Small nucleolar RNA SNORA9: a 120-nucleotide RNA from Pipistrellus kuhlii. Rfam 15.1 lists 1,202 matches to the family in 518 species. Rfam describes the family as follows. ACA9 is a member of the H/ACA class of snoRNA that guide the sites of modification of uridines to pseudouridines. The family is grouped with related families in Rfam's "SNORA9 clan". The base pairs follow the family's consensus structure, which was predicted with PFOLD. Taxonomically the source falls in Pipistrellus (Eukaryota, Eumetazoa, Boreoeutheria, Yangochiroptera). By type it is an H/ACA-box small nucleolar RNA.
RNA sequence: AUGGUGCUUGGGUCUGCGGUGACCCUGUGCAUUCCUACAGUGCUUGCAAGAACAUCUUGGAACGGUUUGAGGCCUUGCCCUGCUGCAUCCAGAGCAAGGUUAUAGAAAUUUCAGACACGG
Numbered sequence: 001a002u003g004g005u006g007c008u009u010g011g012g013u014c015u016g017c018g019g020u021g022a023c024c025c026u027g028u029g030c031a032u033u034c035c036u037a038c039a040g041u042g043c044u045u046g047c048a049a050g051a052a053c054a055u056c057u058u059g060g061a062a063c064g065g066u067u068u069g070a071g072g073c074c075u076u077g078c079c080c081u082g083c084u085g086c087a088u089c090c091a092g093a094g095c096a097a098g099g100u101u102a103u104a105g106a107a108a109u110u111u112c113a114g115a116c117a118c119g120g
Base pairs, nucleotide, nucleotide: 005031006030007029010025011024012023013022014021058113059112060111061110062109073099074098075097076096077095078094080092081091082090